[Rfam]
RNA: Singlet oxygen resistance RNA X
RNA sequence: AACCCCUUGUGGCGGGGUCAUGCCACAUACCUCCCUGUUGGACUUGGCCGGGCCUUCGUGCCCGGCUUUUUUU
Numbered sequence: 001a002a003c004c005c006c007u008u009g010u011g012g013c014g015g016g017g018u019c020a021u022g023c024c025a026c027a028u029a030c031c032u033c034c035c036u037g038u039u040g041g042a043c044u045u046g047g048c049c050g051g052g053c054c055u056u057c058g059u060g061c062c063c064g065g066c067u068u069u070u071u072u073u
Stems, first nucleotide, its partner, number of pairs: 008027006046067008